[Rfam]
RNA sequence: AGGUGUGGUAGAGGCGCGAAUGACAAGAGUACUGUGGAGAAAGUUGCGGAAACUGAUGAACCCAUAGGAAAGGGGAUUUCGCCGAAGCCCAAAAAGCCGCAAUUUUUGGCGCUGGGUCUGUAGUGAAGAACUGCAGGACUGUCACGCGAUGCUUAGAGUCAUCGUGUGGAGAACUACUCCCAAC
Numbered sequence: 001a002g003g004u005g006u007g008g009u010a011g012a013g014g015c016g017c018g019a020a021u022g023a024c025a026a027g028a029g030u031a032c033u034g035u036g037g038a039g040a041a042a043g044u045u046g047c048g049g050a051a052a053c054u055g056a057u058g059a060a061c062c063c064a065u066a067g068g069a070a071a072g073g074g075g076a077u078u079u080c081g082c083c084g085a086a087g088c089c090c091a092a093a094a095a096g097c098c099g100c101a102a103u104u105u106u107u108g109g110c111g112c113u114g115g116g117u118c119u120g121u122a123g124u125g126a127a128g129a130a131c132u133g134c135a136g137g138a139c140u141g142u143c144a145c146g147c148g149a150u151g152c153u154u155a156g157a158g159u160c161a162u163c164g165u166g167u168g169g170a171g172a173a174c175u176a177c178u179c180c181c182a183a184c
Base pairs, nucleotide, nucleotide: 007178008177009176010175011174016082017081018080019079020078024074032067033066034065035064036063037062086113087112088111089109090108091107092106093105094104095103114140115139117137118136119135120134121133122132123131124130142169143168144167145166146165147164148163149162150161151160